[Rfam]
RNA sequence: UACUGAGAAAACCAAACCUAUCGUGAGAUAGGGACAGAAAGCCGCGGAUCUUUGUACGCAAAGACAGCCGGGUUACCUCA
Dot-bracket structure: ...........(....((((((....))))))....)..((((.(((.((((((....))))))...)))))))......
RNA: c-di-GMP-I riboswitch aptamer
Organism: Candidatus Vecturithrix granuli